[Rfam]
RNA sequence: UGCACUGCAAUACUCAGAUUGAUAUGAGUCACUUCCUAUUGCAUGUUACUCCAUCCUCUCUGAGUAGAGUAAGGCACA
Numbered sequence: 001u002g003c004a005c006u007g008c009a010a011u012a013c014u015c016a017g018a019u020u021g022a023u024a025u026g027a028g029u030c031a032c033u034u035c036c037u038a039u040u041g042c043a044u045g046u047u048a049c050u051c052c053a054u055c056c057u058c059u060c061u062g063a064g065u066a067g068a069g070u071a072a073g074g075c076a077c078a
Base pairs, nucleotide, nucleotide: 001076002075003074006071007070008069011066012065013064014063015062016061017060018059021056026051027050028049029048031046032045